[Rfam]
Source information:
The family of this 86-nucleotide sequence from Molothrus ater is "mir-726 microRNA precursor family". Rfam links the family to the GO terms RISC complex and miRNA-mediated post-transcriptional gene silencing. It scores 76 bits against the family's covariance model.
RNA sequence: CGGGCCGUGCGGCCGGAAUUCCGCUAGUUCUGAACUUUUUCCUGCACAAAAAGUUCACUACUGGCAGAACUCGGCCGCGCGCCCCA
Numbered sequence: 001c002g003g004g005c006c007g008u009g010c011g012g013c014c015g016g017a018a019u020u021c022c023g024c025u026a027g028u029u030c031u032g033a034a035c036u037u038u039u040u041c042c043u044g045c046a047c048a049a050a051a052a053g054u055u056c057a058c059u060a061c062u063g064g065c066a067g068a069a070c071u072c073g074g075c076c077g078c079g080c081g082c083c084c085c086a
Base pairs, nucleotide, nucleotide: 003084004083006081007080008079009078010077011076013074014073015072016071019069020068021067023065024064025063026062027061028060031057032056033055034054035053036052038051039050